[Rfam]
RNA sequence: CGAUCACAUGUUGACGUGAAUGGGCUAUAACCCGUCCUAUUGGAUGGGCCAGGCCCAGGAAAGUCCCCGGGCCCAUAACCGCAGAGAUGCGGGCUCAGAAAUGAGUUAUGCUUCAUGGGCUGGAAUCCAAAACUCAUAAAUGGGUUUGGGCUGAGACGAGGUGGAGCCUAUGAUUCCGGCCCAGAAGCCCAAUUGGCUAAUAAAACAGUUAUUCACGUGGUCUAGUUAAAAACCUAGAUUAACUGAACGGGGCUUACAGUCAUGUGGUC
Number, nucleotide and partner (000 for none) at each position: 001c000002g269003a268004u267005c266006a265007c264008a263009u262010g261011u000012u000013g000014a218015c217016g216017u215018g214019a213020a000021u000022g056023g055024g054025c053026u000027a000028u000029a000030a000031c000032c047033c046034g045035u044036c043037c042038u000039a000040u000041u000042g037043g036044a035045u034046g033047g032048g000049c000050c000051a000052g000053g025054c024055c023056c022057a000058g000059g000060a000061a255062a254063g253064u000065c252066c251067c250068c249069g000070g000071g000072c000073c000074c000075a000076u000077a000078a000079c000080c091081g090082c089083a088084g000085a000086g000087a000088u083089g082090c081091g080092g107093g106094c105095u104096c103097a102098g000099a000100a000101a000102u097103g096104a095105g094106u093107u092108a000109u000110g188111c187112u000113u000114c000115a000116u183117g182118g181119g180120c179121u178122g177123g176124a175125a174126u173127c172128c000129a000130a000131a000132a000133c000134u000135c000136a000137u000138a000139a000140a000141u000142g000143g000144g000145u000146u000147u000148g000149g000150g000151c000152u000153g000154a000155g000156a000157c000158g000159a000160g000161g000162u000163g000164g000165a000166g000167c000168c000169u000170a000171u000172g127173a126174u125175u124176c123177c122178g121179g120180c119181c118182c117183a116184g000185a000186a000187g111188c110189c000190c000191a000192a000193u000194u000195g000196g000197c000198u000199a000200a000201u000202a000203a000204a000205a000206c000207a000208g000209u000210u000211a000212u000213u019214c018215a017216c016217g015218u014219g000220g239221u238222c237223u236224a235225g234226u000227u000228a000229a000230a000231a000232a000233c000234c225235u224236a223237g222238a221239u220240u000241a000242a000243c000244u000245g000246a000247a000248c000249g068250g067251g066252g065253c063254u062255u061256a000257c000258a000259g000260u000261c010262a009263u008264g007265u006266g005267g004268u003269c002
Record summary:
RNase MRP: a 269-nucleotide RNA from Solanum lycopersicum. It scores 78 bits against the family's covariance model.